[Rfam]
RNA sequence: CUUUAGUGAAAGAUUUGCUAACUCGAGACGGUAAAAGGGAAACUAAAGAAUAGAAGGAGAAGGGUGAGAAGACGUAAGAAAUUGCGCCACCUACAGGGAGAAGGGUUUUUCGUCUGUGCUAGUCAACCCACUAGACCCCUUUAACUUCG
Numbered sequence: 001c002u003u004u005a006g007u008g009a010a011a012g013a014u015u016u017g018c019u020a021a022c023u024c025g026a027g028a029c030g031g032u033a034a035a036a037g038g039g040a041a042a043c044u045a046a047a048g049a050a051u052a053g054a055a056g057g058a059g060a061a062g063g064g065u066g067a068g069a070a071g072a073c074g075u076a077a078g079a080a081a082u083u084g085c086g087c088c089a090c091c092u093a094c095a096g097g098g099a100g101a102a103g104g105g106u107u108u109u110u111c112g113u114c115u116g117u118g119c120u121a122g123u124c125a126a127c128c129c130a131c132u133a134g135a136c137c138c139c140u141u142u143a144a145c146u147u148c149g
Base pairs, nucleotide, nucleotide: 001048002047003046004045005044006043007042014035015034016033017032018031019030053148054147055146056145059142060141061140062139063138064137073086074085075084076083077082092118093117094116095115096114097113098111099110100109101108119134120133121132122131123130

A member of the RNA family "IMES-5 RNA", 149 nucleotides long. Rfam's curators put it in the seed alignment. The base pairs follow the family's consensus structure, which is taken from published work.